[Rfam]
RNA sequence: CGAUGAACACCGCCGGGCAGGAGCGGGGGACCCAAUUCCGGGCGAUUCCAGUGGAAUCGUCCUUGGGGCUAAGUCACUGCACGUGCCGCUCGGGAGACACGCGCGCCAAGUGACCGGAGGACCUCCCUCCGAGCCCGACAGCUCACCUCGUAGGCGCAGGAGAGGUAUUUC
Numbered sequence: 001c002g003a004u005g006a007a008c009a010c011c012g013c014c015g016g017g018c019a020g021g022a023g024c025g026g027g028g029g030a031c032c033c034a035a036u037u038c039c040g041g042g043c044g045a046u047u048c049c050a051g052u053g054g055a056a057u058c059g060u061c062c063u064u065g066g067g068g069c070u071a072a073g074u075c076a077c078u079g080c081a082c083g084u085g086c087c088g089c090u091c092g093g094g095a096g097a098c099a100c101g102c103g104c105g106c107c108a109a110g111u112g113a114c115c116g117g118a119g120g121a122c123c124u125c126c127c128u129c130c131g132a133g134c135c136c137g138a139c140a141g142c143u144c145a146c147c148u149c150g151u152a153g154g155c156g157c158a159g160g161a162g163a164g165g166u167a168u169u170u171c
Stems, first nucleotide, its partner, number of pairs: 001020001023151006033065002066136003074113004116130004

c-di-AMP riboswitch aptamer (ydaO/yuaA leader): a 171-nucleotide RNA from Yimella sp. cx-51.
Pairs were carried over by alignment from the consensus structure.
Rfam's curators write: This family represents a conserved RNA structure found upstream of the ydaO and yuaA genes in Bacillus subtilis and related genes in other bacteria. The ydaO/yuaA element is thought to act as a genetic 'off' switch for the ydaO and yuaA genes in its native state.
It scores 54 bits against the family's covariance model.